Rfam assigns this 66-nucleotide RNA sequence from Xenopus laevis to the family "Selenocysteine insertion sequence 1". Rfam 15.1 lists 3,793 matches to the family in 721 species. By type it is a cis-regulatory element. Rfam describes the family as follows. The incorporation of selenocysteine into a protein sequence is directed by an in-frame UGA codon (usually a stop codon) within the coding region of the mRNA. Selenoprotein mRNAs contain a conserved secondary structure in the 3' UTR that is required for the distinction of UGA stop from UGA selenocysteine. The selenocysteine insertion sequence (SECIS) is around 60 nt in length and adopts a hairpin structure which is sufficiently well-defined and conserved to act as a computational screen for selenoprotein genes. Its family is annotated with selenocysteine incorporation in the Gene Ontology. NCBI's taxonomy places the organism under Eukaryota, Eumetazoa, Chordata, Dipnotetrapodomorpha, Xenopus.
[Rfam]
RNA sequence: UAUUCUCCAUGAAGGUCUGAUCUUAAAGUUACCGGGUUAACGGACCAGACCUGAGGCUUUGGAAUA
Numbered sequence: 001u002a003u004u005c006u007c008c009a010u011g012a013a014g015g016u017c018u019g020a021u022c023u024u025a026a027a028g029u030u031a032c033c034g035g036g037u038u039a040a041c042g043g044a045c046c047a048g049a050c051c052u053g054a055g056g057c058u059u060u061g062g063a064a065u066a
Stems, first nucleotide, its partner, number of pairs: 001066005014051006021044003029040003